Annotation: Shown here is a 247-nucleotide RNA from Tissierella sp. P1, a member of the family "BsrG". Rfam classes the family as a small RNA. The base pairs follow the family's consensus structure, which was predicted with WAR. Gene Ontology terms of the family: autolysis and toxin activity. A search with the family's covariance model found it, with a score of 56 bits. A reference for the family is Saito et al. (2008), "Novel small RNA-encoding genes in the intergenic regions of Bacillus subtilis", Gene. From the family's description: bsrE, bsrG and bsrH pair through intermolecular interactions with antisense sRNAs.
RNA sequence: AGGUAAUCGAUAUGCAGGGUGUGUUUUGCCACCUCUUUUACAAAGGAGGUGGUUGCUAUGACAACAUAUGAAGCUUUAAUGUUAAUGCUUACAUUUGGAACAUUUGUUAUAGCAAUCGUUAGGAAUAACGACAGAAAAAAAUAGCACCCUGCUGCAACAGGGUGACUAAACUGUAGUUUAUUUAGCUAUGGUGGCAAUCACAUCUUGCGACAUCGAUUACCUUAUUUAUAUUAUACCAAAAUAUAGA
Numbered sequence: 001a002g003g004u005a006a007u008c009g010a011u012a013u014g015c016a017g018g019g020u021g022u023g024u025u026u027u028g029c030c031a032c033c034u035c036u037u038u039u040a041c042a043a044a045g046g047a048g049g050u051g052g053u054u055g056c057u058a059u060g061a062c063a064a065c066a067u068a069u070g071a072a073g074c075u076u077u078a079a080u081g082u083u084a085a086u087g088c089u090u091a092c093a094u095u096u097g098g099a100a101c102a103u104u105u106g107u108u109a110u111a112g113c114a115a116u117c118g119u120u121a122g123g124a125a126u127a128a129c130g131a132c133a134g135a136a137a138a139a140a141a142u143a144g145c146a147c148c149c150u151g152c153u154g155c156a157a158c159a160g161g162g163u164g165a166c167u168a169a170a171c172u173g174u175a176g177u178u179u180a181u182u183u184a185g186c187u188a189u190g191g192u193g194g195c196a197a198u199c200a201c202a203u204c205u206u207g208c209g210a211c212a213u214c215g216a217u218u219a220c221c222u223u224a225u226u227u228a229u230a231u232u233a234u235a236c237c238a239a240a241a242u243a244u245a246g247a
Stems, first nucleotide, its partner, number of pairs: 001222005007216003011212001013156005018150002022146004029052003033048005060120003066116001073088002098113001166185003225247008234238001